[Rfam]
Nucleotides: 071
Base pairs, nucleotide, nucleotide: 003071004070005069007066008065009064010063015061016060017059018058019057020056022055023054
Number, partner (000 for none) and nucleotide at each position: 001000g002000c003071g004070g005069u006000a007066c008065c009064g010063g011000u012000u013000c014000a015061c016060g017059c018058c019057c020056c021000a022055u023054c024000a025000c026000a027000u028000c029000c030000u031000c032000c033000a034000u035000g036000g037000u038000u039000u040000c041000g042000c043000c044000a045000u046000g047000c048000g049000a050000g051000a052000u053000c054023g055022a056020g057019g058018g059017g060016c061015g062000c063010c064009c065008g066007g067000c068000g069005a070004c071003c
This 71-nucleotide RNA from Actinomadura darangshiensis belongs to the Rfam family "L31-Actinobacteria ribosomal protein leader". The family's RNA type in Rfam is cis-regulatory leader.